[Rfam]
RNA: t44 RNA
RNA sequence: AAGCGCGAAAUCCAAAUAAGCACAUCGGCCGUCACAGCUACCGGGUGCCCACUGAGAAAGGUGGGUCGGUAUUCUGGGGUCGAUGGAAGUUUAAA
Numbered sequence: 001a002a003g004c005g006c007g008a009a010a011u012c013c014a015a016a017u018a019a020g021c022a023c024a025u026c027g028g029c030c031g032u033c034a035c036a037g038c039u040a041c042c043g044g045g046u047g048c049c050c051a052c053u054g055a056g057a058a059a060g061g062u063g064g065g066u067c068g069g070u071a072u073u074c075u076g077g078g079g080u081c082g083a084u085g086g087a088a089g090u091u092u093a094a095a
Base pairs, nucleotide, nucleotide: 023085024084025083026082027081028080029079030078035076036075037074040070041069042068043067047066048065049064050063051062